RNA sequence: UGACCCGAGAGGGUCACCUAGCCAACUGACGUUGUUAGUGAAUAUGAUAUUCACGAUAUAACAGCCAAUAGAACCGUUUCUAUUGGCUAUUUUUUU
Numbered sequence: 001u002g003a004c005c006c007g008a009g010a011g012g013g014u015c016a017c018c019u020a021g022c023c024a025a026c027u028g029a030c031g032u033u034g035u036u037a038g039u040g041a042a043u044a045u046g047a048u049a050u051u052c053a054c055g056a057u058a059u060a061a062c063a064g065c066c067a068a069u070a071g072a073a074c075c076g077u078u079u080c081u082a083u084u085g086g087c088u089a090u091u092u093u094u095u096u
Base pairs, nucleotide, nucleotide: 001016002015003014004013005012006011032061033060034059035058038054039053040052041051042050043049044048065086066085067084068083069082070081071080072079